[Rfam]
RNA sequence: CUGAACCUUCGGGGCAGGGUGAAAUUCCCUACCGGCGGUGAUGUGCGGCGGCUUCGGCCGCUGCCUCAGUCCGUGACCCGUGCUUUUCGUCUGAAGAGCCGGUGGACUCGGUGUAAUUCCGAGACCGACAGUAUAGUCUGGAUGGGAGAAGGGGAUA
Numbered sequence: 001c002u003g004a005a006c007c008u009u010c011g012g013g014g015c016a017g018g019g020u021g022a023a024a025u026u027c028c029c030u031a032c033c034g035g036c037g038g039u040g041a042u043g044u045g046c047g048g049c050g051g052c053u054u055c056g057g058c059c060g061c062u063g064c065c066u067c068a069g070u071c072c073g074u075g076a077c078c079c080g081u082g083c084u085u086u087u088c089g090u091c092u093g094a095a096g097a098g099c100c101g102g103u104g105g106a107c108u109c110g111g112u113g114u115a116a117u118u119c120c121g122a123g124a125c126c127g128a129c130a131g132u133a134u135a136g137u138c139u140g141g142a143u144g145g146g147a148g149a150a151g152g153g154g155a156u157a
Stems, first nucleotide, its partner, number of pairs: 006152005017029003031137002033127002035074004069125002078102002107123005129140003
Shown here is a 157-nucleotide RNA sequence from Paenibacillus validus, a member of the family "FMN riboswitch aptamer (RFN element)". Gene Ontology term of the family: FMN binding. NCBI's taxonomy places the organism under Bacteria, Bacillati, Bacillota, Paenibacillaceae, Paenibacillus. Pairs were carried over by alignment from the consensus structure, which is taken from published work. It scores 105 bits against the family's covariance model.